[Rfam]
Record summary: The record is a 201-nucleotide sequence from Miscanthus lutarioriparius, which matches "MIR1435 microRNA precursor family" in Rfam. The family has 3 seed sequences and 1,765 matches in Rfam 15.1. The base pairs follow the family's consensus structure, which was predicted with RNAalifold.
RNA sequence: UAGCUUUGUCCUAAGUCAAACUUCUCUAACUUUGACCAAGUUUAUAGAAAAAUGCACAAACAUCUGCUACAUCAAACUAUAUUCAUUGCAUACACCAGGAAAUAAUAUUUUGAUAGUGGAUUCAUUUGAUAUUGUAGAUGUUAAUAUAUUUUUCUAUAAACUUGGUCAAAGAUAGACAAGUUUGACUUAGGACAAAGUCAA
Numbered sequence: 001u002a003g004c005u006u007u008g009u010c011c012u013a014a015g016u017c018a019a020a021c022u023u024c025u026c027u028a029a030c031u032u033u034g035a036c037c038a039a040g041u042u043u044a045u046a047g048a049a050a051a052a053u054g055c056a057c058a059a060a061c062a063u064c065u066g067c068u069a070c071a072u073c074a075a076a077c078u079a080u081a082u083u084c085a086u087u088g089c090a091u092a093c094a095c096c097a098g099g100a101a102a103u104a105a106u107a108u109u110u111u112g113a114u115a116g117u118g119g120a121u122u123c124a125u126u127u128g129a130u131a132u133u134g135u136a137g138a139u140g141u142u143a144a145u146a147u148a149u150u151u152u153u154c155u156a157u158a159a160a161c162u163u164g165g166u167c168a169a170a171g172a173u174a175g176a177c178a179a180g181u182u183u184g185a186c187u188u189a190g191g192a193c194a195a196a197g198u199c200a201a
Base pairs, nucleotide, nucleotide: 005196006195007194008193009192011190012189013188014187015186016185017184018183019182020181021180022179023178025176026175031170032169033168034167035166045156046155047154048153049152050151051150052149056145059142060141061140062139063138064137065136066135067134072129073128074127075126076125
About this RNA: Rfam links the family to the GO terms RISC complex and miRNA-mediated post-transcriptional gene silencing. A search with the family's covariance model found it, with a score of 100 bits.